Bacillaceae-1 RNA: a 67-nucleotide sequence from Aneurinibacillus soli. The match comes from Rfam's covariance-model search (54 bits). The base pairs follow the family's consensus structure, which is taken from published work. The source organism's lineage runs through Bacteria, Bacillati, Caryophanales, Paenibacillaceae and Aneurinibacillus.

RNA sequence: ACCAUAUGAUGUUCUGCUAAAAACGCGACGUCCUGUCGCAACGCAGAACCUAGCACAUCCUUGUGCG
Numbered sequence: 001a002c003c004a005u006a007u008g009a010u011g012u013u014c015u016g017c018u019a020a021a022a023a024c025g026c027g028a029c030g031u032c033c034u035g036u037c038g039c040a041a042c043g044c045a046g047a048a049c050c051u052a053g054c055a056c057a058u059c060c061u062u063g064u065g066c067g
Stems, first nucleotide, its partner, number of pairs: 011049007025039005053066004